[Rfam]
RNA sequence: GCAACUUGCAGUUGUUUUAAUAAAAUUGGUUCCUUAGGUUAUUUGCCCCACGUUUAUUGUGGGGCUUUUUCUUGCGCAUUUU
Number, nucleotide and partner (000 for none) at each position: 001g015002c014003a013004a012005c011006u010007u000008g000009c000010a006011g005012u004013u003014g002015u001016u000017u000018u000019a000020a000021u000022a000023a000024a000025a000026u000027u000028g000029g000030u000031u000032c000033c000034u000035u000036a000037g000038g000039u000040u000041a000042u000043u000044u000045g065046c064047c063048c062049c061050a060051c059052g058053u000054u000055u000056a000057u000058u052059g051060u050061g049062g048063g047064g046065c045066u000067u000068u000069u000070u000071c000072u000073u000074g000075c000076g000077c000078a000079u000080u000081u000082u000
Aggregatibacter sRNA JA04: an 82-nucleotide sequence from Haemophilus influenzae. Pairs were carried over by alignment from the consensus structure, which was predicted with RNAfold. On this family, see Amarasinghe et al., Mol Oral Microbiol 2012: "Novel iron-regulated and Fur-regulated small regulatory RNAs in Aggregatibacter actinomycetemcomitans". The source organism's lineage runs through Bacteria, Pseudomonadati, Pasteurellales, Pasteurellaceae and Haemophilus influenzae.